A member of the RNA family "L17 ribosomal protein downstream element" from Jeotgalibaca porci, 87 nucleotides long.
The family's RNA type in Rfam is cis-regulatory element.
The family's consensus secondary structure is taken from published work.
Nucleotides: 087
Base pairs, nucleotide, nucleotide: 002053003052004051005050011047012046013045018042019041020040021039022038023037062087063086064085065084066083067082068081069080070079
Number, partner (000 for none) and nucleotide at each position: 001000a002053g003052a004051g005050c006000g007000u008000u009000a010000u011047g012046a013045u014000g015000g016000u017000u018042g019041c020040u021039u022038c023037u024000c025000c026000c027000a028000u029000u030000u031000u032000g033000g034000u035000u036000g037023a038022g039021a040020a041019g042018u043000u044000a045013g046012u047011c048000u049000a050005g051004c052003u053002c054000g055000u056000g057000g058000g059000a060000c061000c062087c063086u064085u065084a066083c067082g068081g069080a070079a071000a072000u073000c074000g075000u076000g077000a078000u079070u080069u081068c082067c083066g084065u085064a086063a087062g